[Rfam]
RNA sequence: CUGGAGACUGAGCACGGAGCCCUUGAAGUCAAGCUGCCUCCGCCCAGAGCCUCCUAGAUGAAAAGGUAGAGAGAACAGGUCUUGCCUGCGAGGGAAACCCAAGACCUGCUUAUCUACCGACAGCC
Numbered sequence: 001c002u003g004g005a006g007a008c009u010g011a012g013c014a015c016g017g018a019g020c021c022c023u024u025g026a027a028g029u030c031a032a033g034c035u036g037c038c039u040c041c042g043c044c045c046a047g048a049g050c051c052u053c054c055u056a057g058a059u060g061a062a063a064a065g066g067u068a069g070a071g072a073g074a075a076c077a078g079g080u081c082u083u084g085c086c087u088g089c090g091a092g093g094g095a096a097a098c099c100c101a102a103g104a105c106c107u108g109c110u111u112a113u114c115u116a117c118c119g120a121c122a123g124c125c
Stems, first nucleotide, its partner, number of pairs: 003054004008049002015042005021036001022033004065118006072111001077107008
A member of the RNA family "Small Cajal body specific RNA 15" from Galemys pyrenaicus, 125 nucleotides long. scaRNAs are a specific class of small nuclear RNAs which localise to the Cajal bodies and guide the modification of RNA polymerase II transcribed spliceosomal RNAs U1, U2, U4, U5 and U12. Taxonomically the source falls in Galemys (Eukaryota, Metazoa, Eumetazoa, Laurasiatheria).